The family of this 414-nucleotide part of an RNA from Colletotrichum asianum is "Eukaryotic large subunit ribosomal RNA". Pairs were carried over by alignment from the consensus structure, which is taken from published work.
RNA sequence: UAACCUUAGAUUAAAUAGGAAUACCUACUAAAUUUAAGUAUAUUAAUAAGUAGAAGAAAAGAAACUAAUAGGGAUUACCUUAAUAAUAAUAAAUAAAGUAGUAAUAGUUUAAAUUUAAAAUCUUACUUUAGGCUUAAGUUAUAAUUUAUAAAAGAUACUUUUAGUAUAGUACCUUCUAAGUUCUCUAAAAUAAGAUAUUAGAGAGGGUAAGAACCUUAUAUAGUUAGAUACUAAGCCUUUAUAAAACUUCUUUAAUAAGUUAAGUAGUUUAAGAAUACUAGUUAAAAUAAGAGGUAUAUUUCUUCUAAAACUAAAUAUUAGCUAGAGAUUAAUAAUAUAUAAGUAGAGUAAUUAAAAGAUAAAAAGCAUUUUAAAAAGAAGGUUAAAUAGUAUAUAAAAUUAUUAAAAAGGAAG
Numbered sequence: 001u002a003a004c005c006u007u008a009g010a011u012u013a014a015a016u017a018g019g020a021a022u023a024c025c026u027a028c029u030a031a032a033u034u035u036a037a038g039u040a041u042a043u044u045a046a047u048a049a050g051u052a053g054a055a056g057a058a059a060a061g062a063a064a065c066u067a068a069u070a071g072g073g074a075u076u077a078c079c080u081u082a083a084u085a086a087u088a089a090u091a092a093a094u095a096a097a098g099u100a101g102u103a104a105u106a107g108u109u110u111a112a113a114u115u116u117a118a119a120a121u122c123u124u125a126c127u128u129u130a131g132g133c134u135u136a137a138g139u140u141a142u143a144a145u146u147u148a149u150a151a152a153a154g155a156u157a158c159u160u161u162u163a164g165u166a167u168a169g170u171a172c173c174u175u176c177u178a179a180g181u182u183c184u185c186u187a188a189a190a191u192a193a194g195a196u197a198u199u200a201g202a203g204a205g206g207g208u209a210a211g212a213a214c215c216u217u218a219u220a221u222a223g224u225u226a227g228a229u230a231c232u233a234a235g236c237c238u239u240u241a242u243a244a245a246a247c248u249u250c251u252u253u254a255a256u257a258a259g260u261u262a263a264g265u266a267g268u269u270u271a272a273g274a275a276u277a278c279u280a281g282u283u284a285a286a287a288u289a290a291g292a293g294g295u296a297u298a299u300u301u302c303u304u305c306u307a308a309a310a311c312u313a314a315a316u317a318u319u320a321g322c323u324a325g326a327g328a329u330u331a332a333u334a335a336u337a338u339a340u341a342a343g344u345a346g347a348g349u350a351a352u353u354a355a356a357a358g359a360u361a362a363a364a365a366g367c368a369u370u371u372u373a374a375a376a377a378g379a380a381g382g383u384u385a386a387a388u389a390g391u392a393u394a395u396a397a398a399a400u401u402a403u404u405a406a407a408a409a410g411g412a413a414g
Stems, first nucleotide, its partner, number of pairs: 025053005035042002065072002076103003086094002106312004112146004118140002121137001126132001151253002154249002159245003164236002167233003172227001176223002180196001182195003199203001206216002262283002265280004289306001291304003346353002369380004